The family of this 77-nucleotide sequence from Mycobacterium tuberculosis is "AS1726 sRNA".

[Rfam]
RNA sequence: GUCGCCGGCGGCGGUGACUAGCCGCACCGCGACCAGGUUGUCGCAGCUCAGUCCGAAACGUCGAGUCGUCCAACCCA
Dot-bracket structure: (((((..(((((........)))))...)))))..(((((..((.((((.((.....))...)))).)).)))))..
For this family Rfam cites "Identification of small RNAs in Mycobacterium tuberculosis" (Arnvig and Young, Mol Microbiol, 2009). The source organism's lineage runs through Bacteria, Actinomycetota, Mycobacteriales, Mycobacterium tuberculosis complex and Mycobacterium tuberculosis.